[Rfam]
Rfam assigns this 68-nucleotide RNA sequence from Microcaecilia unicolor to the family "mir-338 microRNA precursor family". On this family, see Chen et al., Genes Dev 2005: "The developmental miRNA profiles of zebrafish as determined by small RNA cloning". Its family is annotated with miRNA-mediated post-transcriptional gene silencing and RISC complex in the Gene Ontology. A search with the family's covariance model found it, with a score of 77 bits.
RNA sequence: CUGGUAACAAUAUCCUGAUGCUGUCUGAGUAUGUGAUAAAGCUCCAGCAUCAGUGAUUUUGUUGUUGG
Numbered sequence: 001c002u003g004g005u006a007a008c009a010a011u012a013u014c015c016u017g018a019u020g021c022u023g024u025c026u027g028a029g030u031a032u033g034u035g036a037u038a039a040a041g042c043u044c045c046a047g048c049a050u051c052a053g054u055g056a057u058u059u060u061g062u063u064g065u066u067g068g
Stems, first nucleotide, its partner, number of pairs: 006063005012057003015053009